[Rfam]
RNA sequence: AAAGUAAAGGGGCAAUAAACAUUUUCUUGUUCGAUCAAGAAACUAGUAUUGCCCCUUUACUA
Numbered sequence: 001a002a003a004g005u006a007a008a009g010g011g012g013c014a015a016u017a018a019a020c021a022u023u024u025u026c027u028u029g030u031u032c033g034a035u036c037a038a039g040a041a042a043c044u045a046g047u048a049u050u051g052c053c054c055c056u057u058u059a060c061u062a
Base pairs, nucleotide, nucleotide: 006058007057008056009055010054011053012052013051014050015049016048017047021044024041025040026039027038028037029036
RNA: Plastid-psbA-4 3UTR RNA